[Rfam]
RNA sequence: AGAAAUUUUAUAUACCGAGCUUGUACGCCUAAGUUUUUAAAUUUAUUUGAAAAUAAGGCGGCAAUGCCAGCAAUGAAUUUUAUUGCUCAGGGAUAAUGUGGGAAACGACUUAUCCUCUCAUCUUCAGAAAGGUAUCAAAUGCAAUCUAUU
Numbered sequence: 001a002g003a004a005a006u007u008u009u010a011u012a013u014a015c016c017g018a019g020c021u022u023g024u025a026c027g028c029c030u031a032a033g034u035u036u037u038u039a040a041a042u043u044u045a046u047u048u049g050a051a052a053a054u055a056a057g058g059c060g061g062c063a064a065u066g067c068c069a070g071c072a073a074u075g076a077a078u079u080u081u082a083u084u085g086c087u088c089a090g091g092g093a094u095a096a097u098g099u100g101g102g103a104a105a106c107g108a109c110u111u112a113u114c115c116u117c118u119c120a121u122c123u124u125c126a127g128a129a130a131g132g133u134a135u136c137a138a139a140u141g142c143a144a145u146c147u148a149u150u
Stems, first nucleotide, its partner, number of pairs: 006141001012135005019067002022064001026060004033054009069087007090116006098109002101106001117127002
RNA: Molybdenum/Tungsten riboswitch aptamer (Moco RNA motif)
Organism: [Mannheimia] succiniciproducens